[Rfam]
RNA sequence: UUGUGAGGUAGAGGUGCGAUAUUUAUUAGUUUUUCAUGGAGUUUGAGCGAACAAUGAAAUGAAAAAGAAGGAAAUAUUGCCGAAGUGUGAAGUUUCUGCUCGGGACUUUAUGCUGGGUCUGCAGUGAAUAAUUGCAGGACUGUCUCAAGUUGUUUUCCCAAACGACUUGAGUUGUGCUAUCUCAAUC
Numbered sequence: 001u002u003g004u005g006a007g008g009u010a011g012a013g014g015u016g017c018g019a020u021a022u023u024u025a026u027u028a029g030u031u032u033u034u035c036a037u038g039g040a041g042u043u044u045g046a047g048c049g050a051a052c053a054a055u056g057a058a059a060u061g062a063a064a065a066a067g068a069a070g071g072a073a074a075u076a077u078u079g080c081c082g083a084a085g086u087g088u089g090a091a092g093u094u095u096c097u098g099c100u101c102g103g104g105a106c107u108u109u110a111u112g113c114u115g116g117g118u119c120u121g122c123a124g125u126g127a128a129u130a131a132u133u134g135c136a137g138g139a140c141u142g143u144c145u146c147a148a149g150u151u152g153u154u155u156u157c158c159c160a161a162a163c164g165a166c167u168u169g170a171g172u173u174g175u176g177c178u179a180u181c182u183c184a185a186u187c
Stems, first nucleotide, its partner, number of pairs: 006182006016080009031065007084114012115141002118138008144171010
The record is a 187-nucleotide RNA sequence from Ureibacillus massiliensis, which matches "Lysine riboswitch aptamer" in Rfam. The source organism's lineage runs through Bacteria, Bacillati, Caryophanales, Caryophanaceae and Ureibacillus massiliensis.